The record is a 118-nucleotide sequence from Geoanaerobacter pelophilus, which matches "Molybdenum/Tungsten riboswitch aptamer (Moco RNA motif)" in Rfam. NCBI's taxonomy places the organism under Bacteria, Thermodesulfobacteriota, Desulfuromonadia, Geobacterales, Geoanaerobacter. It scores 70 bits against the family's covariance model.
RNA sequence: UCAGUUAUGUCUCUCCGAGCUCUCCAGCCUACAAGGUUCCCCUCAUGGCUGGCAGCCUGCAGGUGCCGCUGGAAACGGUGGUGCCUCCCUUUUGGAAAGGAGAGCCUUGAAACAGAAC
Numbered sequence: 001u002c003a004g005u006u007a008u009g010u011c012u013c014u015c016c017g018a019g020c021u022c023u024c025c026a027g028c029c030u031a032c033a034a035g036g037u038u039c040c041c042c043u044c045a046u047g048g049c050u051g052g053c054a055g056c057c058u059g060c061a062g063g064u065g066c067c068g069c070u071g072g073a074a075a076c077g078g079u080g081g082u083g084c085c086u087c088c089c090u091u092u093u094g095g096a097a098a099g100g101a102g103a104g105c106c107u108u109g110a111a112a113c114a115g116a117a118c
Stems, first nucleotide, its partner, number of pairs: 006109001011104006019056003024052006034043003061086011087095002